[Rfam]
RNA sequence: CCCGGAAGAUGGUGAACUAUGCCUGAGCAGGAUGAAGCCAGAGGAAACUCUGGUGGAAGUCCGAAGCGGUUCUGACGUGCAAAUCGAUCGUCUGACUUGGGUAUAGGGGCGAAAGACUAAUCGAACCAUCUAGUAGCUGGUU
Numbered sequence: 001c002c003c004g005g006a007a008g009a010u011g012g013u014g015a016a017c018u019a020u021g022c023c024u025g026a027g028c029a030g031g032a033u034g035a036a037g038c039c040a041g042a043g044g045a046a047a048c049u050c051u052g053g054u055g056g057a058a059g060u061c062c063g064a065a066g067c068g069g070u071u072c073u074g075a076c077g078u079g080c081a082a083a084u085c086g087a088u089c090g091u092c093u094g095a096c097u098u099g100g101g102u103a104u105a106g107g108g109g110c111g112a113a114a115g116a117c118u119a120a121u122c123g124a125a126c127c128a129u130c131u132a133g134u135a136g137c138u139g140g141u142u
Base pairs, nucleotide, nucleotide: 001140002139004137008130009129010128011127012126013125017106018105019104020103021102022101023100024099025098026097027096028094030062031061032060033059037054038053039052040051041050042049043048066091067090068089069088071087072086074085075084108118109117

This 142-nucleotide part of an RNA from Toxocara canis belongs to the Rfam family "Eukaryotic large subunit ribosomal RNA". Gene Ontology terms of the family: structural constituent of ribosome and ribosome. Pairs were carried over by alignment from the consensus structure, which is taken from published work. Taxonomically the source falls in Toxocara (Eukaryota, Chromadorea, Rhabditida, Spirurina). On this family, see Cannone et al., BMC Bioinformatics 2002: "The comparative RNA web (CRW) site: an online database of comparative sequence and structure information for ribosomal, intron, and other RNAs".